[Rfam]
This 68-nucleotide sequence from Alteribacillus iranensis belongs to the Rfam family "Bacillaceae-1 RNA". The source organism's lineage runs through Bacteria, Bacillati, Caryophanales, Bacillaceae and Alteribacillus. The family's RNA type in Rfam is small RNA. The family's consensus secondary structure is taken from published work.

RNA sequence: AGCAAAUGAUCUUCUGCUAAGUGCGCGAACGUCCUGUUCGCAACGCAGAAGUCAGCACCUCCUGUGCA
Numbered sequence: 001a002g003c004a005a006a007u008g009a010u011c012u013u014c015u016g017c018u019a020a021g022u023g024c025g026c027g028a029a030c031g032u033c034c035u036g037u038u039c040g041c042a043a044c045g046c047a048g049a050a051g052u053c054a055g056c057a058c059c060u061c062c063u064g065u066g067c068a
Stems, first nucleotide, its partner, number of pairs: 011051007026040005055067004